[Rfam]
RNA sequence: GGCGAUAAACGGACGGUGUAAUAAGCCAUUCGGACCCGGGGGCGGUACCCGGCGCCUCCACCAGAAACCGCCGGCUGUGGGCGAAGUGCUCAUGAGGACGGCUUCUGAUGGGGGCGAAAUAGGAUCGACGAGGGUGUAAAGAUCGUACUUUCGCUCGGCAUGGUACCACCGAUAUCGGACCAAACUAGUAGUUGCAAACGACAACUAUGCGGAAGCACGUCUCGCUGCUUAA
Number, nucleotide and partner (000 for none) at each position: 001g155002g154003c153004g152005a151006u000007a000008a000009a000010c000011g000012g000013a000014c145015g144016g143017u142018g000019u000020a000021a000022u000023a000024a000025g000026c134027c133028a000029u000030u131031c130032g129033g000034a000035c000036c052037c051038g050039g049040g048041g000042g000043c000044g000045g000046u000047a000048c040049c039050c038051g037052g036053c116054g115055c114056c113057u112058c111059c110060a000061c000062c000063a000064g000065a000066a000067a000068c000069c000070g000071c000072c000073g000074g000075c000076u000077g000078u000079g000080g000081g000082c000083g000084a000085a000086g000087u000088g000089c000090u000091c000092a000093u000094g000095a000096g000097g000098a000099c000100g000101g000102c000103u000104u000105c000106u000107g000108a000109u000110g059111g058112g057113g056114g055115c054116g053117a000118a000119a000120u000121a000122g000123g000124a000125u000126c000127g000128a000129c032130g031131a030132g000133g027134g026135u000136g000137u000138a000139a000140a000141g000142a017143u016144c015145g014146u000147a000148c000149u000150u000151u005152c004153g003154c002155u001156c171157g170158g169159c000160a000161u000162g000163g000164u000165a000166c000167c000168a000169c158170c157171g156172a000173u000174a000175u000176c000177g000178g000179a000180c000181c000182a000183a000184a000185c000186u000187a000188g000189u000190a000191g000192u000193u000194g000195c000196a000197a000198a000199c000200g000201a000202c000203a000204a000205c000206u000207a000208u000209g000210c000211g000212g000213a000214a000215g000216c000217a000218c000219g000220u000221c000222u000223c000224g000225c000226u000227g000228c000229u000230u000231a000232a000
This 232-nucleotide RNA sequence from Nitratireductor aestuarii belongs to the Rfam family "permuted transfer-messenger RNA". The family's consensus secondary structure is taken from published work. The match comes from Rfam's covariance-model search (149 bits). Bacterial tmRNA, also known as 10Sa RNA or SsrA, is named for its dual tRNA and mRNA-like properties. Its role is to liberate the mRNA from a stalled ribosome. To accomplish this part of the tmRNA is used as a reading frame that ends in a translation stop signal. The broken mRNA is replaced in the ribosome by the tmRNA and translation of the tmRNA leads to addition of a proteolysis tag to the incomplete protein enabling recognition by a protease.